Overview
The record is a 355-nucleotide RNA sequence, which matches "Alphaproteobacteria transfer-messenger RNA" in Rfam. It is annotated as a non-coding RNA gene. Bacterial tmRNA, also known as 10Sa RNA or SsrA, is named for its dual tRNA and mRNA-like properties. Its role is to liberate the mRNA from a stalled ribosome. Pairs were carried over by alignment from the consensus structure, which is taken from published work.

RNA sequence: AAACUUGUCCUUGAGCCCUCAAAUCCCUAUCUUGGUCCCUGCCGGGGCAACUCGGCUAUGUCGGUAGACUGUCGCGUGGAAUAAACACUUCGGACCCGGGGGGCAGUACCCCGGCGCCUCCACCACCAGCCGCAGGCCGAAGAUUUUCGGCGGUUGCUGACGGGGGCGAAAUAGGAUCGACGAGUGCAAUAAAGACGCGGUUGCCGAUCGGUAUGGAUGCCACCGUGACGGCUCAAUCACACAAGUGCCAACGAUAACGAGGCGCUCGCUAUUGCUGCGUAACUGACGGCCUGACGGUCUGACGUUACAAAGCUAAAGCGCGGUUGGACCCCACCGGGCAACAGAAGGGGAUUCC
Numbered sequence: 001a002a003a004c005u006u007g008u009c010c011u012u013g014a015g016c017c018c019u020c021a022a023a024u025c026c027c028u029a030u031c032u033u034g035g036u037c038c039c040u041g042c043c044g045g046g047g048c049a050a051c052u053c054g055g056c057u058a059u060g061u062c063g064g065u066a067g068a069c070u071g072u073c074g075c076g077u078g079g080a081a082u083a084a085a086c087a088c089u090u091c092g093g094a095c096c097c098g099g100g101g102g103g104c105a106g107u108a109c110c111c112c113g114g115c116g117c118c119u120c121c122a123c124c125a126c127c128a129g130c131c132g133c134a135g136g137c138c139g140a141a142g143a144u145u146u147u148c149g150g151c152g153g154u155u156g157c158u159g160a161c162g163g164g165g166g167c168g169a170a171a172u173a174g175g176a177u178c179g180a181c182g183a184g185u186g187c188a189a190u191a192a193a194g195a196c197g198c199g200g201u202u203g204c205c206g207a208u209c210g211g212u213a214u215g216g217a218u219g220c221c222a223c224c225g226u227g228a229c230g231g232c233u234c235a236a237u238c239a240c241a242c243a244a245g246u247g248c249c250a251a252c253g254a255u256a257a258c259g260a261g262g263c264g265c266u267c268g269c270u271a272u273u274g275c276u277g278c279g280u281a282a283c284u285g286a287c288g289g290c291c292u293g294a295c296g297g298u299c300u301g302a303c304g305u306u307a308c309a310a311a312g313c314u315a316a317a318g319c320g321c322g323g324u325u326g327g328a329c330c331c332c333a334c335c336g337g338g339c340a341a342c343a344g345a346a347g348g349g350g351a352u353u354c355c
Stems, first nucleotide, its partner, number of pairs: 041056005060208005071201007086186003090183003096114005115168007209225004214235003219232003321336004326353002329350003